RNA sequence: GUGGGUUAUGGGGACAUGCAUCCCGUCACUAUUGGAGGCAAAAUAGUAGGAUCUCUCUGUGCCAUCGCCGGUGUGCUGACUAUUGCCUUGCCUGUUCCAGUCAUUGUCUCCAAC
Numbered sequence: 001g002u003g004g005g006u007u008a009u010g011g012g013g014a015c016a017u018g019c020a021u022c023c024c025g026u027c028a029c030u031a032u033u034g035g036a037g038g039c040a041a042a043a044u045a046g047u048a049g050g051a052u053c054u055c056u057c058u059g060u061g062c063c064a065u066c067g068c069c070g071g072u073g074u075g076c077u078g079a080c081u082a083u084u085g086c087c088u089u090g091c092c093u094g095u096u097c098c099a100g101u102c103a104u105u106g107u108c109u110c111c112a113a114c
Stems, first nucleotide, its partner, number of pairs: 001114002004111002008107004013102003018097001020095002037077004049063002
Shown here is a 114-nucleotide RNA from Thamnophis sirtalis, a member of the family "Potassium channel RNA editing signal". Pairs were carried over by alignment from the consensus structure, which is taken from published work. Its family is annotated with adenosine to inosine editing in the Gene Ontology.